[Rfam]
RNA sequence: AGCUCUUCCGAGGGGAGCACCAGACGGUGCUGAGAUGGUGGUGAACCGGACCCUUGAACCUGAUCCGGGUCAUGCCGGCGUAGGAACGGAACUGUCGUGCGCU
Numbered sequence: 001a002g003c004u005c006u007u008c009c010g011a012g013g014g015g016a017g018c019a020c021c022a023g024a025c026g027g028u029g030c031u032g033a034g035a036u037g038g039u040g041g042u043g044a045a046c047c048g049g050a051c052c053c054u055u056g057a058a059c060c061u062g063a064u065c066c067g068g069g070u071c072a073u074g075c076c077g078g079c080g081u082a083g084g085a086a087c088g089g090a091a092c093u094g095u096c097g098u099g100c101g102c103u
Stems, first nucleotide, its partner, number of pairs: 006091005011054004017030005037047003059084004065078004
Dot-bracket structure: .....(((((((((..(((((....)))))......(((.....)))...))))....((((..((((......))))..))))..)))))............

Background:
Shown here is a 103-nucleotide RNA sequence from Agrobacterium fabrum, a member of the family "TPP riboswitch aptamer (THI element)". Rfam's curators put it in the seed alignment.